Source information: The family of this 176-nucleotide RNA sequence from Desulfosporosinus acididurans is "Lysine riboswitch aptamer". It scores 110 bits against the family's covariance model. The organism belongs to Desulfosporosinus, within Bacteria.

[Rfam]
RNA sequence: UUUCAGGGUAGAGGCGCGGUCCUCAAGAGUAAAGUCAUUUUUAAUUUGGGCAAUAUUAUGGCUUGAAAGGGAGCAUCGCCGAAGUGUGUGAGAUAAUUCCCAAAAACUCACAUGCUGGUUAUGUAUUUGAAAGGAACAUAACUGUCACAAGCGUCUUGUGGAGAGCUACCUCCUUC
Numbered sequence: 001u002u003u004c005a006g007g008g009u010a011g012a013g014g015c016g017c018g019g020u021c022c023u024c025a026a027g028a029g030u031a032a033a034g035u036c037a038u039u040u041u042u043a044a045u046u047u048g049g050g051c052a053a054u055a056u057u058a059u060g061g062c063u064u065g066a067a068a069g070g071g072a073g074c075a076u077c078g079c080c081g082a083a084g085u086g087u088g089u090g091a092g093a094u095a096a097u098u099c100c101c102a103a104a105a106a107c108u109c110a111c112a113u114g115c116u117g118g119u120u121a122u123g124u125a126u127u128u129g130a131a132a133g134g135a136a137c138a139u140a141a142c143u144g145u146c147a148c149a150a151g152c153g154u155c156u157u158g159u160g161g162a163g164a165g166c167u168a169c170c171u172c173c174u175u176c
Stems, first nucleotide, its partner, number of pairs: 006171006016079005022073003032064007083116010094105001117143008126134002145161007